RNA sequence: AAUAUUAAAUUUCAUAGAACUCGUAUAAUCAUGGGGAUAUGGCCCAUAAGUUUCUACCGGAUGACCAAUGCAAUCAUCUGACUAUGAGUGAAGGCGCAUCAGGC
Numbered sequence: 001a002a003u004a005u006u007a008a009a010u011u012u013c014a015u016a017g018a019a020c021u022c023g024u025a026u027a028a029u030c031a032u033g034g035g036g037a038u039a040u041g042g043c044c045c046a047u048a049a050g051u052u053u054c055u056a057c058c059g060g061a062u063g064a065c066c067a068a069u070g071c072a073a074u075c076a077u078c079u080g081a082c083u084a085u086g087a088g089u090g091a092a093g094g095c096g097c098a099u100c101a102g103g104c
Stems, first nucleotide, its partner, number of pairs: 019089007029049001031047005058080007